[Rfam]
RNA: Early nodulin 40
Nucleotides: 292
Base pairs, nucleotide, nucleotide: 062103118250119249120248121247122246123245137240274290275289276288277287278286
Number, partner (000 for none) and nucleotide at each position: 001000a002000u003000g004000a005000a006000g007000c008000u009000u010000c011000u012000u013000u014000g015000u016000u017000g018000g019000c020000a021000a022000a023000a024000a025000u026000c027000a028000a029000u030000u031000c032000a033000u034000g035000g036000u037000u038000c039000u040000u041000a042000a043000a044000a045000c046000a047000a048000a049000c050000a051000u052000g053000g054000a055000g056000a057000g058000a059000a060000g061000u062103g063000u064000u065000a066000g067000a068000g069000g070000g071000u072000u073000g074000u075000a076000u077000u078000a079000a080000a081000c082000a083000a084000a085000a086000c087000c088000c089000u090000u091000u092000a093000c094000a095000c096000u097000c098000u099000c100000c101000c102000u103062c104000c105000a106000u107000u108000u109000u110000c111000a112000a113000a114000a115000a116000c117000a118250g119249u120248u121247u122246g123245c124000u125000u126000u127000g128000u129000g130000c131000u132000u133000u134000a135000g136000c137240u138000a139000u140000u141000g142000g143000c144000u145000u146000c147000u148000c149000a150000u151000a152000u153000c154000a155000c156000a157000a158000a159000g160000a161000g162000a163000u164000u165000a166000u167000a168000u169000g170000u171000u172000u173000u174000u175000u176000u177000c178000u179000g180000a181000g182000u183000a184000g185000c186000a187000g188000a189000a190000g191000c192000a193000a194000a195000u196000a197000a198000u199000u200000a201000a202000g203000c204000a205000u206000u207000u208000u209000u210000c211000u212000c213000c214000g215000a216000a217000g218000g219000a220000u221000c222000a223000g224000a225000a226000g227000u228000u229000u230000u231000u232000u233000g234000g235000u236000u237000a238000u239000a240137g241000c242000a243000u244000g245123g246122c247121a248120a249119a250118c251000c252000g253000g254000c255000a256000a257000g258000u259000c260000a261000c262000a263000a264000a265000a266000a267000g268000g269000c270000a271000a272000c273000g274290g275289a276288u277287u278286c279000c280000u281000u282000u283000u284000u285000g286278g287277g288276a289275u290274c291000u292000u